[Rfam]
RNA sequence: ACGCAGGUGUAAAAUAUUCCUAGCGGGCAGGAUCUUUUCAACACAAUGGAAAUGAUCAUAAUCAGUCUAGGUAAUAAAAAAUAAAAAAAUAAAGAAAAAAUGUUGUAAUGAGUUUUAUUUAUGCUUUACAACGAUCUUUCUUUUUUUUUUUAACAU
Numbered sequence: 001a002c003g004c005a006g007g008u009g010u011a012a013a014a015u016a017u018u019c020c021u022a023g024c025g026g027g028c029a030g031g032a033u034c035u036u037u038u039c040a041a042c043a044c045a046a047u048g049g050a051a052a053u054g055a056u057c058a059u060a061a062u063c064a065g066u067c068u069a070g071g072u073a074a075u076a077a078a079a080a081a082u083a084a085a086a087a088a089a090u091a092a093a094g095a096a097a098a099a100a101u102g103u104u105g106u107a108a109u110g111a112g113u114u115u116u117a118u119u120u121a122u123g124c125u126u127u128a129c130a131a132c133g134a135u136c137u138u139u140c141u142u143u144u145u146u147u148u149u150u151u152a153a154c155a156u
Stems, first nucleotide, its partner, number of pairs: 019071005024065001025063002031057003035052005085151005091146005098139003102135004

small nucleolar RNA snoR31: a 156-nucleotide RNA from Plasmodium knowlesi.
The literature on the family includes a 2007 paper in RNA by Chakrabarti et al., "Structural RNAs of known and unknown function identified in malaria parasites by comparative genomics and RNA analysis".
Taxonomically the source falls in Plasmodium knowlesi (Eukaryota, Alveolata, Haemosporida, Plasmodium).
Gene Ontology terms of the family: nucleolus and RNA processing.